[Rfam]
RNA sequence: UAUAAAUAUCGACAAAUUACUCAUAUAGUUCCCAUAAUAAGGUUGGGGAGUUUCUACAGAAGACCGUAAAGCUUCUACUAUGAGUGAAAGUGCGGCUAGG
Numbered sequence: 001u002a003u004a005a006a007u008a009u010c011g012a013c014a015a016a017u018u019a020c021u022c023a024u025a026u027a028g029u030u031c032c033c034a035u036a037a038u039a040a041g042g043u044u045g046g047g048g049a050g051u052u053u054c055u056a057c058a059g060a061a062g063a064c065c066g067u068a069a070a071g072c073u074u075c076u077a078c079u080a081u082g083a084g085u086g087a088a089a090g091u092g093c094g095g096c097u098a099g100g
Base pairs, nucleotide, nucleotide: 018086019085020084021083022082023081024080025079029049030048031047032046033045034044058076059075060074061073062072